[Rfam]
RNA: SAM riboswitch aptamer (S box leader)
RNA sequence: UUCUUAUCAAGAGAGGUGGAGGGACUGGCCCUUCGAAGCCUCGGCAGCGGACUUUUUAUAGUACUGUGCCAAUUCCAGAAGUUAUUUACUUAAAGAUAAGAA
Numbered sequence: 001u002u003c004u005u006a007u008c009a010a011g012a013g014a015g016g017u018g019g020a021g022g023g024a025c026u027g028g029c030c031c032u033u034c035g036a037a038g039c040c041u042c043g044g045c046a047g048c049g050g051a052c053u054u055u056u057u058a059u060a061g062u063a064c065u066g067u068g069c070c071a072a073u074u075c076c077a078g079a080a081g082u083u084a085u086u087u088a089c090u091u092a093a094a095g096a097u098a099a100g101a102a
Stems, first nucleotide, its partner, number of pairs: 001102008013042005021031003025078004043070004048066002051062003074094001079091004